RNA sequence: UCGACUGUACUUACAAGGAUCUUGUAUACAGUAUAUAUCUUUGCCUUUGUUUCCGAACAAAGUCAUGUCAACCUGACUGGACGAUGAAUUAUACUGCACUGUUCGUAAAGGGAAGUGUGAGUUUAUUUCUUGGUCGAAUCCUUUAUUGAUUCCACAAGCCAGAUCUAUUCUCGUUGAUGACCUUGCGACCCUCUAUUGGAUUGCGAGGACGGAUGCAGAUUCUGACAGUCU
Numbered sequence: 001u002c003g004a005c006u007g008u009a010c011u012u013a014c015a016a017g018g019a020u021c022u023u024g025u026a027u028a029c030a031g032u033a034u035a036u037a038u039c040u041u042u043g044c045c046u047u048u049g050u051u052u053c054c055g056a057a058c059a060a061a062g063u064c065a066u067g068u069c070a071a072c073c074u075g076a077c078u079g080g081a082c083g084a085u086g087a088a089u090u091a092u093a094c095u096g097c098a099c100u101g102u103u104c105g106u107a108a109a110g111g112g113a114a115g116u117g118u119g120a121g122u123u124u125a126u127u128u129c130u131u132g133g134u135c136g137a138a139u140c141c142u143u144u145a146u147u148g149a150u151u152c153c154a155c156a157a158g159c160c161a162g163a164u165c166u167a168u169u170c171u172c173g174u175u176g177a178u179g180a181c182c183u184u185g186c187g188a189c190c191c192u193c194u195a196u197u198g199g200a201u202u203g204c205g206a207g208g209a210c211g212g213a214u215g216c217a218g219a220u221u222c223u224g225a226c227a228g229u230c231u
Stems, first nucleotide, its partner, number of pairs: 003039001006035001008033004016027001018025001043064001045062007075230005094218005099212006109184004119172003123167001185204004190199001
ACEA small nucleolar RNA U3: a 231-nucleotide sequence from Smittium mucronatum. Rfam 15.1 lists 2,156 matches to the family in 132 species. Pairs were carried over by alignment from the consensus structure, which is taken from published work. For this family Rfam cites "The uRNA database" (Zwieb, Nucleic Acids Res, 1997). The family is grouped with related families in Rfam's "U3 clan". Taxonomically the source falls in Smittium (Eukaryota, Opisthokonta, Kickxellomycota, Harpellomycetes). Small nucleolar RNAs (snoRNAs) are involved in the processing and modification of rRNA in the nucleolus. There are two main classes of snoRNAs: the box C/D class, and the box H/ACA class. U3 snoRNA is a member of the box C/D class. Indeed, the box C/D element is a subset of the six short sequence elements found in all U3 snoRNAs, namely boxes A, A', B, C, C', and D. The U3 snoRNA secondary structure is characterised by a small 5' domain (with boxes A and A'), and a larger 3' domain (with boxes B, C, C', and D), the two domains being linked by a single-stranded hinge. Rfam classes the family as a C/D-box small nucleolar RNA.